The record is a 98-nucleotide RNA sequence from Brachionus plicatilis, which matches "Vault RNA" in Rfam. The family's consensus secondary structure is taken from published work. Rfam's curators write: This family of RNAs are found as part of the enigmatic vault ribonucleoprotein complex. The complex consists of a major vault protein (MVP), two minor vault proteins (VPARP and TEP1), and several small untranslated RNA molecules. It has been suggested that the vault complex is involved in drug resistance. The match comes from Rfam's covariance-model search (48 bits). Rfam classes the family as a non-coding RNA gene.
RNA sequence: AGGUUAGCAUAGCAAAGUGGUUACAUCGAAAAAGCGUUUUCCGUAAAUAAACUACUUUGCAACCCAAAUGGAAACCACUUGCGCAAUCUAACUUUUUU
Dot-bracket structure: .((((((....((((.((((.....((.(.......................................).))..)))))))).....)))))).....